[Rfam]
RNA: Small Cajal body specific RNA 15
Organism: Heliornis fulica
RNA sequence: CUGGAGGACUAAGAAAGUGGAGCCAGUAACACUAUACUGACUCCACUGAUACUAUCCUCCUAAAUGAAAUGGUGGAAGAACAAGGCCUGCCUGCGAGAUGAAGUCAGGACUUACUUCAUCUACCGACAAGG
Numbered sequence: 001c002u003g004g005a006g007g008a009c010u011a012a013g014a015a016a017g018u019g020g021a022g023c024c025a026g027u028a029a030c031a032c033u034a035u036a037c038u039g040a041c042u043c044c045a046c047u048g049a050u051a052c053u054a055u056c057c058u059c060c061u062a063a064a065u066g067a068a069a070u071g072g073u074g075g076a077a078g079a080a081c082a083a084g085g086c087c088u089g090c091c092u093g094c095g096a097g098a099u100g101a102a103g104u105c106a107g108g109a110c111u112u113a114c115u116u117c118a119u120c121u122a123c124c125g126a127c128a129a130g131g
Stems, first nucleotide, its partner, number of pairs: 003060006010051002018045005024039001026035003071124006078117001082112003086108004